This 163-nucleotide sequence from Vombatus ursinus belongs to the Rfam family "U1 spliceosomal RNA". For this family Rfam cites "The uRNA database" (Zwieb, Nucleic Acids Res, 1997). The match comes from Rfam's covariance-model search (115 bits). The family's consensus secondary structure is taken from published work. Clan: U1 clan.
RNA sequence: AUACUUACCUGACAGGGGUGAUUUCAUGAUCACAAAGGUGGUUUCCCCAGGAUGAGGCUUAUCCAUUGCACUCACAUGGGAUGAUCCCUGUAAUUUUUCCAAAUGAGGGAAACUUGACUGCAUAAUUUGUGGUAGUGGGGGACUGCAUUCAUGUUCUCCCCUG
Numbered sequence: 001a002u003a004c005u006u007a008c009c010u011g012a013c014a015g016g017g018g019u020g021a022u023u024u025c026a027u028g029a030u031c032a033c034a035a036a037g038g039u040g041g042u043u044u045c046c047c048c049a050g051g052a053u054g055a056g057g058c059u060u061a062u063c064c065a066u067u068g069c070a071c072u073c074a075c076a077u078g079g080g081a082u083g084a085u086c087c088c089u090g091u092a093a094u095u096u097u098u099c100c101a102a103a104u105g106a107g108g109g110a111a112a113c114u115u116g117a118c119u120g121c122a123u124a125a126u127u128u129g130u131g132g133u134a135g136u137g138g139g140g141g142a143c144u145g146c147a148u149u150c151a152u153g154u155u156c157u158c159c160c161c162u163g
Stems, first nucleotide, its partner, number of pairs: 013120003016048003020044002024041004049089003054085001056082001058080001060078003091116003094112003098108002137162006145154003